RNA sequence: GCUACAUUUAAUUUUCGUUCCUUGCUUCCGCAGAUGGGUAGCUGGUCUAACAGUCGGAGGCUGAUUAACCCGUAAGGAGCAGUAAUG
Numbered sequence: 001g002c003u004a005c006a007u008u009u010a011a012u013u014u015u016c017g018u019u020c021c022u023u024g025c026u027u028c029c030g031c032a033g034a035u036g037g038g039u040a041g042c043u044g045g046u047c048u049a050a051c052a053g054u055c056g057g058a059g060g061c062u063g064a065u066u067a068a069c070c071c072g073u074a075a076g077g078a079g080c081a082g083u084a085a086u087g
Base pairs, nucleotide, nucleotide: 017080018079019078020077021076022075023074024061025060026059027058028057029056032048033047034046
The family of this 87-nucleotide RNA from Pasteurella multocida is "RpsF leader". Taxonomically the source falls in Pasteurella multocida subsp. multocida (Bacteria, Pseudomonadota, Pasteurellaceae, Pasteurella multocida). Rfam's curators write: Conserved and widely distributed to many bacterial species RNA structure. It precedes operon containing rpsF, which encodes ribosomal protein S6. Rfam links the family to the GO terms negative regulation of translation and protein binding.